RNA sequence: AGUUGAGGUAGAGGUGCGAUAGGUCAAGAGUAAAUUUGUGGAGACUUGGGAAAGUCAAUUAAACAAAUCGAAAGGGACCAUCGCCGAAGUGUGGUUUCCCCAAAGCCACGCUGGGCUUAUGCCGAAUAGGUAUAAGACUGUCACCAAAGUUUUAAUUUAACUAAGAUUUUGGUGAAGCGCUACUUCAGGA
Numbered sequence: 001a002g003u004u005g006a007g008g009u010a011g012a013g014g015u016g017c018g019a020u021a022g023g024u025c026a027a028g029a030g031u032a033a034a035u036u037u038g039u040g041g042a043g044a045c046u047u048g049g050g051a052a053a054g055u056c057a058a059u060u061a062a063a064c065a066a067a068u069c070g071a072a073a074g075g076g077a078c079c080a081u082c083g084c085c086g087a088a089g090u091g092u093g094g095u096u097u098c099c100c101c102a103a104a105g106c107c108a109c110g111c112u113g114g115g116c117u118u119a120u121g122c123c124g125a126a127u128a129g130g131u132a133u134a135a136g137a138c139u140g141u142c143a144c145c146a147a148a149g150u151u152u153u154a155a156u157u158u159a160a161c162u163a164a165g166a167u168u169u170u171g172g173u174g175a176a177g178c179g180c181u182a183c184u185u186c187a188g189g190a
Base pairs, nucleotide, nucleotide: 006185007184008183009182010181011180016084017083018082019081020080023078024077025076034068035067036066037065038064039063088112089111090110091109092108093107094106095105096104097103113139114138116136117135118134119133120132121131122130123129141175142174143173144172145171146170147169148168149167150166151165152164153163
Rfam assigns this 190-nucleotide RNA from Tepidanaerobacter syntrophicus to the family "Lysine riboswitch aptamer". A reference for the family is Grundy et al. (2003), "The L box regulon: Lysine sensing by leader RNAs of bacterial lysine biosynthesis genes", Proc Natl Acad Sci U S A. Rfam's curators write: Riboswitches are metabolite binding domains within certain messenger RNAs that serve as precision sensors for their corresponding targets.